RNA sequence: GUGAGGCGUCGCGACUGGCGCGCUGAGGUGGAGAACCACCGGGGAGCGAAGAACGCGGGCACCGUGCGCCUGGGUGCCGGCG
Numbered sequence: 001g002u003g004a005g006g007c008g009u010c011g012c013g014a015c016u017g018g019c020g021c022g023c024u025g026a027g028g029u030g031g032a033g034a035a036c037c038a039c040c041g042g043g044g045a046g047c048g049a050a051g052a053a054c055g056c057g058g059g060c061a062c063c064g065u066g067c068g069c070c071u072g073g074g075u076g077c078c079g080g081c082g
Stems, first nucleotide, its partner, number of pairs: 007051001009049004015043002017070005028039004059077005

A member of the RNA family "ZMP/ZTP riboswitch aptamer (pfl RNA motif)" from Kribbella antiqua, 82 nucleotides long. The family's consensus secondary structure is taken from published work. A search with the family's covariance model found it, with a score of 48 bits.